[Rfam]
RNA: mir-891 microRNA precursor family
RNA sequence: CCUUAAUCCUUGCAACUUACCUGAGUCAUUGAUUCAGUAAAACAUUCAAUGGCACAUGUUUGUUGUUAGGGUCAAAAGA
Numbered sequence: 001c002c003u004u005a006a007u008c009c010u011u012g013c014a015a016c017u018u019a020c021c022u023g024a025g026u027c028a029u030u031g032a033u034u035c036a037g038u039a040a041a042a043c044a045u046u047c048a049a050u051g052g053c054a055c056a057u058g059u060u061u062g063u064u065g066u067u068a069g070g071g072u073c074a075a076a077a078g079a
Stems, first nucleotide, its partner, number of pairs: 002078003006072005012066005019059002022056002025053008